Shown here is a 92-nucleotide RNA sequence from Streptomyces qinzhouensis, a member of the family "Selenocysteine transfer RNA".

RNA sequence: GGAGGUGUCCGCCGGCCGGUGCCGGUCCCGGUCUUCAAAACCGGUGGACGUUGUCCCUUACGCGUCAGCGGGUUCGACUCCCGUCCACCUCC
Numbered sequence: 001g002g003a004g005g006u007g008u009c010c011g012c013c014g015g016c017c018g019g020u021g022c023c024g025g026u027c028c029c030g031g032u033c034u035u036c037a038a039a040a041c042c043g044g045u046g047g048a049c050g051u052u053g054u055c056c057c058u059u060a061c062g063c064g065u066c067a068g069c070g071g072g073u074u075c076g077a078c079u080c081c082c083g084u085c086c087a088c089c090u091c092c
Stems, first nucleotide, its partner, number of pairs: 001092007011026006028044005047066005069083004
Rfam links the family to the GO term triplet codon-amino acid adaptor activity.